[Rfam]
RNA sequence: AUGGUCCGCGCGGGAGAGUCCGGUGAUCGCAGCCGGACACCGAAGGAGCAAGCCUCCCCGCCAAUCUCUCAGGUAACCGCACCGCGCAGACCCG
Numbered sequence: 001a002u003g004g005u006c007c008g009c010g011c012g013g014g015a016g017a018g019u020c021c022g023g024u025g026a027u028c029g030c031a032g033c034c035g036g037a038c039a040c041c042g043a044a045g046g047a048g049c050a051a052g053c054c055u056c057c058c059c060g061c062c063a064a065u066c067u068c069u070c071a072g073g074u075a076a077c078c079g080c081a082c083c084g085c086g087c088a089g090a091c092c093c094g
Stems, first nucleotide, its partner, number of pairs: 006089001008087006020036004039074003042070002046068003052061002
Dot-bracket structure: .....(.((((((......((((.........))))..(((((..(((...((......))....))))).))).......)))))).).....

This 94-nucleotide RNA from Microbacterium azadirachtae belongs to the Rfam family "Glycine riboswitch aptamer". The base pairs follow the family's consensus structure. NCBI's taxonomy places the organism under Bacteria, Bacillati, Actinomycetes, Micrococcales, Microbacterium. A search with the family's covariance model found it, with a score of 67 bits.